Rfam assigns this 64-nucleotide RNA from Paramuricea clavata to the family "Selenocysteine insertion sequence 1".
RNA sequence: GUUGUAUUAUGAAGACAGUAGCUGAAACCCAUAUUGGAUGGCUACUGUUGGAACUGCUUGCAAC
Numbered sequence: 001g002u003u004g005u006a007u008u009a010u011g012a013a014g015a016c017a018g019u020a021g022c023u024g025a026a027a028c029c030c031a032u033a034u035u036g037g038a039u040g041g042c043u044a045c046u047g048u049u050g051g052a053a054c055u056g057c058u059u060g061c062a063a064c
Stems, first nucleotide, its partner, number of pairs: 001064005014049010029037003
The base pairs follow the family's consensus structure, which is taken from published work.